[Rfam]
RNA sequence: ACGAUGAAGAGUUUGAUCCUGGCUCAGGAUGAACGCUAGCGGCAGGCUUAACACAUGCAAGUCGAACGGUAACAGCACUUCGGUGGCUGACGAGUGGCGCACGGGUGCGUAACGCGUAUGCAAUCUACCUUUUACAGUGGGAUAGCCCAGAGAAAUUUGGAUUAAUACCGCAUAGUAUAUAGAAUUGGCAUCGAUUUUAUAUUAAACAUUUAUGGGUAAAAGAUGAGCAUGCGUUCUAUUAGCUAGAUGGAGUGGUAACGGCACCCCAUGGCGACGAUAGAUAGGGGCCCUGAGAGGGGGAUCCCCCACACUGGUACUGAGACACGGACCAGACUCCUACGGGAGGCAGCAGUGAGGAAUAUUGGACAAUGGGCGCAAGCCUGAUCCAGCCAUGCCGCGUGCAGGAAGACUGCCCUAUGGGUUGUAAACUGCUUUUAUACGGGAAGAAACACCCCCUCGUGAGGGGGCUUGACGGUACCGUAAGAAUAAGGAUCGGCUAACUCCGUGCCAGCAGCCGCGGUAAUACGGAGGAUCCAAGCGUUAUCCGGAAUCAUUG
Numbered sequence: 001a002c003g004a005u006g007a008a009g010a011g012u013u014u015g016a017u018c019c020u021g022g023c024u025c026a027g028g029a030u031g032a033a034c035g036c037u038a039g040c041g042g043c044a045g046g047c048u049u050a051a052c053a054c055a056u057g058c059a060a061g062u063c064g065a066a067c068g069g070u071a072a073c074a075g076c077a078c079u080u081c082g083g084u085g086g087c088u089g090a091c092g093a094g095u096g097g098c099g100c101a102c103g104g105g106u107g108c109g110u111a112a113c114g115c116g117u118a119u120g121c122a123a124u125c126u127a128c129c130u131u132u133u134a135c136a137g138u139g140g141g142a143u144a145g146c147c148c149a150g151a152g153a154a155a156u157u158u159g160g161a162u163u164a165a166u167a168c169c170g171c172a173u174a175g176u177a178u179a180u181a182g183a184a185u186u187g188g189c190a191u192c193g194a195u196u197u198u199a200u201a202u203u204a205a206a207c208a209u210u211u212a213u214g215g216g217u218a219a220a221a222g223a224u225g226a227g228c229a230u231g232c233g234u235u236c237u238a239u240u241a242g243c244u245a246g247a248u249g250g251a252g253u254g255g256u257a258a259c260g261g262c263a264c265c266c267c268a269u270g271g272c273g274a275c276g277a278u279a280g281a282u283a284g285g286g287g288c289c290c291u292g293a294g295a296g297g298g299g300g301a302u303c304c305c306c307c308a309c310a311c312u313g314g315u316a317c318u319g320a321g322a323c324a325c326g327g328a329c330c331a332g333a334c335u336c337c338u339a340c341g342g343g344a345g346g347c348a349g350c351a352g353u354g355a356g357g358a359a360u361a362u363u364g365g366a367c368a369a370u371g372g373g374c375g376c377a378a379g380c381c382u383g384a385u386c387c388a389g390c391c392a393u394g395c396c397g398c399g400u401g402c403a404g405g406a407a408g409a410c411u412g413c414c415c416u417a418u419g420g421g422u423u424g425u426a427a428a429c430u431g432c433u434u435u436u437a438u439a440c441g442g443g444a445a446g447a448a449a450c451a452c453c454c455c456c457u458c459g460u461g462a463g464g465g466g467g468c469u470u471g472a473c474g475g476u477a478c479c480g481u482a483a484g485a486a487u488a489a490g491g492a493u494c495g496g497c498u499a500a501c502u503c504c505g506u507g508c509c510a511g512c513a514g515c516c517g518c519g520g521u522a523a524u525a526c527g528g529a530g531g532a533u534c535c536a537a538g539c540g541u542u543a544u545c546c547g548g549a550a551u552c553a554u555u556g
Stems, first nucleotide, its partner, number of pairs: 009025005027546004032542006039398006045391002047356001052354003056351003061098003066095002069091002072088001076085003105309003114234008124226002129222007137171004145162001147160005177202007185194003207214002235281003242272003247269004252264003284306004288299004311332005334345004362388001364387003370383005401432004412422003438482005446473001452467003490535005501530005511518002

The record is a 556-nucleotide part of an RNA from Aquaticitalea lipolytica, which matches "Bacterial small subunit ribosomal RNA" in Rfam. The literature on the family includes a 2001 paper in Science by Yusupov et al., "Crystal structure of the ribosome at 5.5 A resolution". Rfam 15.1 lists 42,628 matches to the family in 10,626 species. Pairs were carried over by alignment from the consensus structure, which is taken from published work.